Bacterial RNase P class A: a 431-nucleotide sequence from Allorhizobium borbori. Ribonuclease P (RNase P) is a ubiquitous endoribonuclease, found in archaea, bacteria and eukarya as well as chloroplasts and mitochondria.
RNA sequence: CCAGUCGGCCGGGCAGCCGCGCUUCACCAAUGCCGAAAGGCGGUGAGGUGAGGAAAGUCCGGGCUCCACGGAAACACGGUGCCGGAUAACGUCCGGCGGGGGCGACCCCAGGGAAAGUGCCACAGAGAGUAGACCGCGCCGACGUGCCCGCCUGGGGCACAUUCGCGGCGUAAGGGUGAAAGGGUGGGGUAAGAGCCCACCGCGGACCCGGCAACGGGGACGGCAUGGUAAACCCCACCGGGAGCAAGACCGAAUAGGGACGACACGGGGCGUGCGCAAGCACGUCACAGGCCUGUUUCCGGGCCCGUUGUCCGGGUGGGUUGCGAGAGGCGACGCGCGAGCGGCGUCCCAGAUGAAUGGCUGCCACGUUCCGGCACCCCGCAAGGGGUUCCGGGGCCAUACAGAACCCGGCUUACAGGCCGACUGGCAAA
Numbered sequence: 001c002c003a004g005u006c007g008g009c010c011g012g013g014c015a016g017c018c019g020c021g022c023u024u025c026a027c028c029a030a031u032g033c034c035g036a037a038a039g040g041c042g043g044u045g046a047g048g049u050g051a052g053g054a055a056a057g058u059c060c061g062g063g064c065u066c067c068a069c070g071g072a073a074a075c076a077c078g079g080u081g082c083c084g085g086a087u088a089a090c091g092u093c094c095g096g097c098g099g100g101g102g103c104g105a106c107c108c109c110a111g112g113g114a115a116a117g118u119g120c121c122a123c124a125g126a127g128a129g130u131a132g133a134c135c136g137c138g139c140c141g142a143c144g145u146g147c148c149c150g151c152c153u154g155g156g157g158c159a160c161a162u163u164c165g166c167g168g169c170g171u172a173a174g175g176g177u178g179a180a181a182g183g184g185u186g187g188g189g190u191a192a193g194a195g196c197c198c199a200c201c202g203c204g205g206a207c208c209c210g211g212c213a214a215c216g217g218g219g220a221c222g223g224c225a226u227g228g229u230a231a232a233c234c235c236c237a238c239c240g241g242g243a244g245c246a247a248g249a250c251c252g253a254a255u256a257g258g259g260a261c262g263a264c265a266c267g268g269g270g271c272g273u274g275c276g277c278a279a280g281c282a283c284g285u286c287a288c289a290g291g292c293c294u295g296u297u298u299c300c301g302g303g304c305c306c307g308u309u310g311u312c313c314g315g316g317u318g319g320g321u322u323g324c325g326a327g328a329g330g331c332g333a334c335g336c337g338c339g340a341g342c343g344g345c346g347u348c349c350c351a352g353a354u355g356a357a358u359g360g361c362u363g364c365c366a367c368g369u370u371c372c373g374g375c376a377c378c379c380c381g382c383a384a385g386g387g388g389u390u391c392c393g394g395g396g397c398c399a400u401a402c403a404g405a406a407c408c409c410g411g412c413u414u415a416c417a418g419g420c421c422g423a424c425u426g427g428c429a430a431a
Stems, first nucleotide, its partner, number of pairs: 001427010011416001012365007020050009055414003059411005064244004073298002077240005082096005097111001098109004112235002117233002119229003134175002136171006144163001183201006202224001203222002207218004248322004258313006290305005329348004334343003
Notes: The family's RNA type in Rfam is ribozyme.